[Rfam]
RNA: mir-458 microRNA precursor family
Organism: Sitta europaea
RNA sequence: GUGCUUAUGGCAGAACCAUUCCAAGAGCUAUGACCACGAGCCUGUGAUAGCUCUGGAAAUGGCGCUGCCAUCGGCAC
Number, nucleotide and partner (000 for none) at each position: 001g000002u076003g075004c074005u000006u000007a071008u070009g069010g000011c067012a066013g065014a000015a000016c062017c061018a060019u059020u058021c000022c000023a000024a054025g053026a052027g051028c050029u049030a048031u047032g000033a000034c000035c000036a000037c000038g000039a000040g000041c000042c000043u000044g000045u000046g000047a031048u030049a029050g028051c027052u026053c025054u024055g000056g000057a000058a020059a019060u018061g017062g016063c000064g000065c013066u012067g011068c000069c009070a008071u007072c000073g000074g004075c003076a002077c000